RNA sequence: GCGCCCCUAGUUUAAUGGUAGAACAGAGGUCUCCAAAACCUUUAGUCAGGGUUCGAUUCCUUGGGGGCGCG
Numbered sequence: 001g002c003g004c005c006c007c008u009a010g011u012u013u014a015a016u017g018g019u020a021g022a023a024c025a026g027a028g029g030u031c032u033c034c035a036a037a038a039c040c041u042u043u044a045g046u047c048a049g050g051g052u053u054c055g056a057u058u059c060c061u062u063g064g065g066g067g068c069g070c071g
Base pairs, nucleotide, nucleotide: 001070002069003068004067005066006065007064010024011023012022013021026042027041028040029039030038047063048062049061050060051059
Notes:
The record is a 71-nucleotide RNA from a Candidatus Melainabacteria bacterium, which matches "tRNA" in Rfam. The base pairs follow the family's consensus structure, which is taken from published work. Transfer RNA (tRNA) molecules are approximately 80 nucleotides in length. NCBI's taxonomy places the organism under Bacteria, Bacillati, Candidatus Melainabacteria.